[Rfam]
RNA sequence: UAACCUCUGGCGAGAAACGUGAAUGUUG
Number, nucleotide and partner (000 for none) at each position: 001u028002a027003a026004c025005c000006u000007c000008u023009g000010g020011c019012g018013a000014g000015a000016a000017a000018c012019g011020u010021g000022a000023a008024u000025g004026u003027u002028g001
Overview:
The record is a 28-nucleotide RNA from Olleya marilimosa, which matches "L19-Flavobacteria ribosomal protein leader" in Rfam. The base pairs follow the family's consensus structure, which is taken from published work. The family's RNA type in Rfam is cis-regulatory leader. Rfam's curators put it in the seed alignment.